[Rfam]
RNA sequence: UUCAAUCUUCAGGGUUGGGUGAAAUUCCCUAUCGGCGGUAAAGUCCGCGAGCCAUUUGGCAUGAUCCGGUGAAAUUCCGGGACCGACGGUUAUAGUCCGGAUGAAAGAAGAUCGAA
Number, nucleotide and partner (000 for none) at each position: 001u000002u000003c114004a000005a112006u111007c110008u109009u108010c107011a000012g000013g000014g000015u000016u000017g029018g028019g027020u000021g000022a000023a000024a000025u000026u000027c019028c018029c017030u000031a096032u095033c085034g084035g048036c047037g046038g045039u000040a000041a000042a000043g083044u082045c038046c037047g036048c035049g000050a000051g000052c000053c059054a000055u000056u000057u000058g000059g053060c000061a000062u000063g000064a000065u081066c080067c079068g078069g077070u000071g000072a000073a000074a000075u000076u000077c069078c068079g067080g066081g065082a044083c043084c034085g033086a000087c099088g098089g097090u000091u000092a000093u000094a000095g032096u031097c089098c088099g087100g000101a000102u000103g000104a000105a000106a000107g010108a009109a008110g007111a006112u005113c000114g003115a000116a000
RNA: FMN riboswitch aptamer (RFN element)